[Rfam]
RNA sequence: CCAGAGGGCCGGGCGGCCGCGGGUGCAGUGAUGCGCGCGAGGAAAGUCCGGGCUCCGCAUAACCACGGUGCCGGAUAACGUCCGGCGGGGGCAACCCCAGGGACAGUGCCACAGAGAAGAGACCGCCUAUGGCCGUCGUCCGGGCAACCGGAUACGCGGUCAGGCAAGGGUGAAACGGUGCGGCAAGAGCGCACCGCGCGACUGGCAACAGAAGCGGCACGGCAAACCCCACCGGGAGCAAGACCGAAUAGGGAUGGCGCGAACGCUGGCGAAAGUUGGGGUUCAGGGUGUGGUUGUCACCCAGUCGUCCGGGUUGGUUGCUUGAGCCCGUCGGCAACGGCGGGCCUAGAGGAAUGGUCGCCCAGUCGCAGCGAUGUGAUGGACAGAACCCGGCUUACAGGCCCUCUGGCACC
Dot-bracket structure: ((((((((((((((((((.((.(((((....))))).))....[[[.[[[[[((((.....[.[.((((((((((.....)))))(((((....)))).)((...(((((............(((((..((((((.....................)))))))))..)).......((((((.......))))))((((..(((....)))..))).)..)))..)))))))))))))...((((......((((((..............................(((..].]..)))....)))))).....))))......((((((((....))))))))..........)))))))..........................]]]]]]]].).))))))))))....
RNA: Bacterial RNase P class A